A member of the RNA family "Small nucleolar RNA Z278" from Malus domestica, 114 nucleotides long. About the family: snoZ278 is a C/D box small nucleolar RNA. Its methylation guide targets have not been reported. The family's consensus secondary structure was predicted with PFOLD. It scores 46 bits against the family's covariance model. Lineage of the source: Eukaryota > Viridiplantae > Streptophyta > rosids > Malus. A reference for the family is Chen et al. (2003), "The high diversity of snoRNAs in plants: identification and comparative study of 120 snoRNA genes from Oryza sativa", Nucleic Acids Res.
[Rfam]
RNA sequence: GCCGAUGACGAUUCAAUCCGCUUGUUUGAGGUGCAGUGGAAUUGAGACCCUGUUUACAGGGAGAACCCCUCAGUGACACUGCAUUCAUAUGAAUACAAUGGAUUUAGCUGAGGU
Numbered sequence: 001g002c003c004g005a006u007g008a009c010g011a012u013u014c015a016a017u018c019c020g021c022u023u024g025u026u027u028g029a030g031g032u033g034c035a036g037u038g039g040a041a042u043u044g045a046g047a048c049c050c051u052g053u054u055u056a057c058a059g060g061g062a063g064a065a066c067c068c069c070u071c072a073g074u075g076a077c078a079c080u081g082c083a084u085u086c087a088u089a090u091g092a093a094u095a096c097a098a099u100g101g102a103u104u105u106a107g108c109u110g111a112g113g114u
Base pairs, nucleotide, nucleotide: 001114002113003112048061049060050059051058052057